Mammalian CPEB3 ribozyme: a 76-nucleotide RNA from Alligator sinensis. The match comes from Rfam's covariance-model search (36 bits). The family's consensus secondary structure is taken from published work. The organism belongs to Alligator, within Eukaryota. Rfam links the family to the GO term RNA nuclease activity.

RNA sequence: GGUUGCAAGCUCAAGGCCAUGGCAGAAGUGCUCACAGCACAGCCUGCCAGUUUCCAACAAAUGUGUGAAUUCUGCU
Numbered sequence: 001g002g003u004u005g006c007a008a009g010c011u012c013a014a015g016g017c018c019a020u021g022g023c024a025g026a027a028g029u030g031c032u033c034a035c036a037g038c039a040c041a042g043c044c045u046g047c048c049a050g051u052u053u054c055c056a057a058c059a060a061a062u063g064u065g066u067g068a069a070u071u072c073u074g075c076u
Stems, first nucleotide, its partner, number of pairs: 015044003021076007028040003048065002052061002